RNA sequence: AGUAUGUGAUGACAUCACUUAUGCGUGUCAUCUGAUUGGCUGUGGACAAUGUGUUACAUGGUCUCAGCUGGUGUUUUAUUGGUUGUUACUGUGGGACAUUGUGUUCCAAGGCCAAAGUGAUAACGCUUAUACUCUGAUGCU
Numbered sequence: 001a002g003u004a005u006g007u008g009a010u011g012a013c014a015u016c017a018c019u020u021a022u023g024c025g026u027g028u029c030a031u032c033u034g035a036u037u038g039g040c041u042g043u044g045g046a047c048a049a050u051g052u053g054u055u056a057c058a059u060g061g062u063c064u065c066a067g068c069u070g071g072u073g074u075u076u077u078a079u080u081g082g083u084u085g086u087u088a089c090u091g092u093g094g095g096a097c098a099u100u101g102u103g104u105u106c107c108a109a110g111g112c113c114a115a116a117g118u119g120a121u122a123a124c125g126c127u128u129a130u131a132c133u134c135u136g137a138u139g140c141u
Base pairs, nucleotide, nucleotide: 001141002140003139004138047103048102051099052098053097054096055095
A member of the RNA family "Small nucleolar RNA SNORD10" from Pocillopora damicornis, 141 nucleotides long. The family's consensus secondary structure was predicted with WAR. The family has 22 seed sequences and 433 matches in Rfam 15.1.